[Rfam]
This 98-nucleotide RNA sequence from Papaver nudicaule belongs to the Rfam family "Small nucleolar RNA Z43". Its family is annotated with RNA processing and nucleolus in the Gene Ontology. The organism belongs to Papaver, within Eukaryota.

RNA sequence: GAAUUUAUGAUGAUAUGUGUGAUGGUCUCGUUCGUCGUAAUGGUUGUUUAAUCAUGGCCAUGCCAACCACUCUACAUAUCAGCACCCAUAUUCAAUCC
Numbered sequence: 001g002a003a004u005u006u007a008u009g010a011u012g013a014u015a016u017g018u019g020u021g022a023u024g025g026u027c028u029c030g031u032u033c034g035u036c037g038u039a040a041u042g043g044u045u046g047u048u049u050a051a052u053c054a055u056g057g058c059c060a061u062g063c064c065a066a067c068c069a070c071u072c073u074a075c076a077u078a079u080c081a082g083c084a085c086c087c088a089u090a091u092u093c094a095a096u097c098c
Base pairs, nucleotide, nucleotide: 001098003096004095046061047060048056